[Rfam]
RNA sequence: UUCUCAAGCGAAAGCAAAGCCUUCAAUCUCAAACUACUUUAGUACAUCUUUACCGGUUUUAUACCAACUCUGCCAAAAUGUCUCCCUGCUCCUGCAACUGCUGCUCUGGCAACUGCUCCAGCUGCUCCUGCGCCUCUUGCAGCGUGAGUAACC
Numbered sequence: 001u002u003c004u005c006a007a008g009c010g011a012a013a014g015c016a017a018a019g020c021c022u023u024c025a026a027u028c029u030c031a032a033a034c035u036a037c038u039u040u041a042g043u044a045c046a047u048c049u050u051u052a053c054c055g056g057u058u059u060u061a062u063a064c065c066a067a068c069u070c071u072g073c074c075a076a077a078a079u080g081u082c083u084c085c086c087u088g089c090u091c092c093u094g095c096a097a098c099u100g101c102u103g104c105u106c107u108g109g110c111a112a113c114u115g116c117u118c119c120a121g122c123u124g125c126u127c128c129u130g131c132g133c134c135u136c137u138u139g140c141a142g143c144g145u146g147a148g149u150a151a152c153c
Base pairs, nucleotide, nucleotide: 087111088110089109090108094104095103096102115140116139124131125130
A member of the RNA family "A. fumigatus sRNA Afu_254" from Aspergillus luchuensis, 153 nucleotides long. Rfam classes the family as a small RNA. The base pairs follow the family's consensus structure, which was predicted with WAR. A reference for the family is Jochl et al. (2008), "Small ncRNA transcriptome analysis from Aspergillus fumigatus suggests a novel mechanism for regulation of protein synthesis", Nucleic Acids Res. Lineage of the source: Eukaryota > Opisthokonta > Eurotiomycetes > Eurotiales > Aspergillus subgen. Circumdati.